A member of the RNA family "L31-Actinobacteria ribosomal protein leader" from Streptomyces tateyamensis, 45 nucleotides long.
RNA sequence: UCGGUCCCGGUUCACGUGCGGUCCAUCGACCGCCGACCCGGCACC
Numbered sequence: 001u002c003g004g005u006c007c008c009g010g011u012u013c014a015c016g017u018g019c020g021g022u023c024c025a026u027c028g029a030c031c032g033c034c035g036a037c038c039c040g041g042c043a044c045c
Base pairs, nucleotide, nucleotide: 003045004044005043007041008040009039010038015035016034018033019032020031021030022029023028
A search with the family's covariance model found it, with a score of 44 bits. The family's consensus secondary structure is taken from published work.